[Rfam]
About this RNA
The record is a 274-nucleotide sequence from Komagataella phaffii, which matches "Fungal signal recognition particle RNA" in Rfam. Pairs were carried over by alignment from the consensus structure, which is taken from published work. NCBI's taxonomy places the organism under Eukaryota, Ascomycota, Pichiomycetes, Komagataella, Komagataella phaffii. Clan: SRP clan. The family has 50 seed sequences and 748 matches in Rfam 15.1.
RNA sequence: AGGCUGUUAUGGCGCAUCCGGGGGAGGUAGUUACUUGACCUUGAUUCCUAAUAGCUUACAACUGAGGUGUCUCGUUCGAUCCUGGCGGUCCGCAAUAUUUUCCAUACGAGUAAUCUGUGGGGGAAGGCGAGCAAUAAGACGUGCCACCGCCCAAGGGGAGCAAUCCAGCAGGGAACACGUCCCGCAAGGAGGCGGGUGAGAUAGCAUCUCGUUGGUAAUGGGCUGUUGGUGAACAAAGUUUGACUAUGUGAACCGGCUAUUUACAUUUUUGCUU
Numbered sequence: 001a002g003g004c005u006g007u008u009a010u011g012g013c014g015c016a017u018c019c020g021g022g023g024g025a026g027g028u029a030g031u032u033a034c035u036u037g038a039c040c041u042u043g044a045u046u047c048c049u050a051a052u053a054g055c056u057u058a059c060a061a062c063u064g065a066g067g068u069g070u071c072u073c074g075u076u077c078g079a080u081c082c083u084g085g086c087g088g089u090c091c092g093c094a095a096u097a098u099u100u101u102c103c104a105u106a107c108g109a110g111u112a113a114u115c116u117g118u119g120g121g122g123g124a125a126g127g128c129g130a131g132c133a134a135u136a137a138g139a140c141g142u143g144c145c146a147c148c149g150c151c152c153a154a155g156g157g158g159a160g161c162a163a164u165c166c167a168g169c170a171g172g173g174a175a176c177a178c179g180u181c182c183c184g185c186a187a188g189g190a191g192g193c194g195g196g197u198g199a200g201a202u203a204g205c206a207u208c209u210c211g212u213u214g215g216u217a218a219u220g221g222g223c224u225g226u227u228g229g230u231g232a233a234c235a236a237a238g239u240u241u242g243a244c245u246a247u248g249u250g251a252a253c254c255g256g257c258u259a260u261u262u263a264c265a266u267u268u269u270u271g272c273u274u
Stems, first nucleotide, its partner, number of pairs: 003013002019271006026264001028263003032259002035243004040238003045232002048229011061213001063211008071200008080190004085185004090131001091129003096125001099123008108115002138181006150173003157166003
Dot-bracket structure: ..((.......)).....((((((.(.(((.((.((((.(((..((.(((((((((((..(.((((((((((((((((.((((.((((.((((..(..((((((((.((....)))))))))).).))).)......((((((......(((....(((....)))....)))..)))))))))).))))..))))))))...)))))))).).....))))))))))).))...))).))))..............)).)))).))))))...
Annotation
Rfam classes the family as a non-coding RNA gene.